[Rfam]
RNA sequence: GGCGAUAAAUUGCGCUGUGUAAUAGGUACAACGGACCCGGGGGCAGUACCCGGCGGCUCCACCAAAAAUGGCGGUUUUCCGCCGUUCCUGAUGGGGCCGAACUAGGAUCGACGUGUGCUGAAAGACAGUGUUUUUGCCCGGGCUGAAAACCCCGUAAAACUGUUCAAAACCUAUAAGUGCCAACGAUAACGAAGCACUCGCUAUUGCAGCGUAA
Numbered sequence: 001g002g003c004g005a006u007a008a009a010u011u012g013c014g015c016u017g018u019g020u021a022a023u024a025g026g027u028a029c030a031a032c033g034g035a036c037c038c039g040g041g042g043g044c045a046g047u048a049c050c051c052g053g054c055g056g057c058u059c060c061a062c063c064a065a066a067a068a069u070g071g072c073g074g075u076u077u078u079c080c081g082c083c084g085u086u087c088c089u090g091a092u093g094g095g096g097c098c099g100a101a102c103u104a105g106g107a108u109c110g111a112c113g114u115g116u117g118c119u120g121a122a123a124g125a126c127a128g129u130g131u132u133u134u135u136g137c138c139c140g141g142g143c144u145g146a147a148a149a150c151c152c153c154g155u156a157a158a159a160c161u162g163u164u165c166a167a168a169a170c171c172u173a174u175a176a177g178u179g180c181c182a183a184c185g186a187u188a189a190c191g192a193a194g195c196a197c198u199c200g201c202u203a204u205u206g207c208a209g210c211g212u213a214a
Stems, first nucleotide, its partner, number of pairs: 001138005015128004027117003031114003037053005054099007139154004
Shown here is a 214-nucleotide RNA from Aurantiacibacter gangjinensis, a member of the family "permuted transfer-messenger RNA".
NCBI's taxonomy places the organism under Bacteria, Alphaproteobacteria, Sphingomonadales, Erythrobacteraceae, Aurantiacibacter.
It scores 147 bits against the family's covariance model.
The base pairs follow the family's consensus structure, which is taken from published work.
Bacterial tmRNA, also known as 10Sa RNA or SsrA, is named for its dual tRNA and mRNA-like properties.